[Rfam]
RNA: MIR474 microRNA precursor family
Organism: Populus tomentosa
RNA sequence: UCUAAAAGUUACCGGGUUUUGCAGAGCAGCCGGAUCCAACGCUAUUGGGUCAUGCCAGGCAACAGGACCCCAAACGUUUGGAUUCUGCUAGGCAGCAGGUUCCAACGUCGUUAAAUCCUGCCAAGCCAGACUCGAUAGCACUUUUUGACU
Numbered sequence: 001u002c003u004a005a006a007a008g009u010u011a012c013c014g015g016g017u018u019u020u021g022c023a024g025a026g027c028a029g030c031c032g033g034a035u036c037c038a039a040c041g042c043u044a045u046u047g048g049g050u051c052a053u054g055c056c057a058g059g060c061a062a063c064a065g066g067a068c069c070c071c072a073a074a075c076g077u078u079u080g081g082a083u084u085c086u087g088c089u090a091g092g093c094a095g096c097a098g099g100u101u102c103c104a105a106c107g108u109c110g111u112u113a114a115a116u117c118c119u120g121c122c123a124a125g126c127c128a129g130a131c132u133c134g135a136u137a138g139c140a141c142u143u144u145u146u147g148a149c150u
Stems, first nucleotide, its partner, number of pairs: 001148002004145006011136001013134007021126002026121004033051007
Dot-bracket structure: ((.((((((.(.(((((((.((...((((...(((((((.....)))))))..................................................................))))...)).))))))).)...)))))).))..